[Rfam]
RNA sequence: GCGCUGGUUUAGCUCAGUGGUUACUUCUCAGCACCUUUGAACCGCUUUACUCUCGUCAGAGGGAUCGAACCACGGGCGCUGUCCAGUGUUUUA
Numbered sequence: 001g002c003g004c005u006g007g008u009u010u011a012g013c014u015c016a017g018u019g020g021u022u023a024c025u026u027c028u029c030a031g032c033a034c035c036u037u038u039g040a041a042c043c044g045c046u047u048u049a050c051u052c053u054c055g056u057c058a059g060a061g062g063g064a065u066c067g068a069a070c071c072a073c074g075g076g077c078g079c080u081g082u083c084c085a086g087u088g089u090u091u092u093a
Stems, first nucleotide, its partner, number of pairs: 002088006012077004017073004025069003
This 93-nucleotide sequence from Maylandia zebra belongs to the Rfam family "Vault RNA". The family's RNA type in Rfam is non-coding RNA gene. It scores 66 bits against the family's covariance model. The family has 73 seed sequences and 2,873 matches in Rfam 15.1. On this family, see Stadler et al., Mol Biol Evol 2009: "Evolution of Vault RNAs". About the family: This family of RNAs are found as part of the enigmatic vault ribonucleoprotein complex.